[Rfam]
RNA: Small nucleolar RNA SNORA3/SNORA45 family
Organism: Cervus elaphus
RNA sequence: CUCGAGACUACAAUCACAUCCUGACAGCUCUUGGUCCUGGUGUGCUAGAGUCCUUGGAGAAAAUCUGCUGCUCUUGAUUCACAGUCAUUGCCCCCAGCAGUGCCCAGAUCAGACACAUGC
Numbered sequence: 001c002u003c004g005a006g007a008c009u010a011c012a013a014u015c016a017c018a019u020c021c022u023g024a025c026a027g028c029u030c031u032u033g034g035u036c037c038u039g040g041u042g043u044g045c046u047a048g049a050g051u052c053c054u055u056g057g058a059g060a061a062a063a064u065c066u067g068c069u070g071c072u073c074u075u076g077a078u079u080c081a082c083a084g085u086c087a088u089u090g091c092c093c094c095c096a097g098c099a100g101u102g103c104c105c106a107g108a109u110c111a112g113a114c115a116c117a118u119g120c
Stems, first nucleotide, its partner, number of pairs: 002057005007051003012046001015044006023036003068112003072108003076104001080102003084098001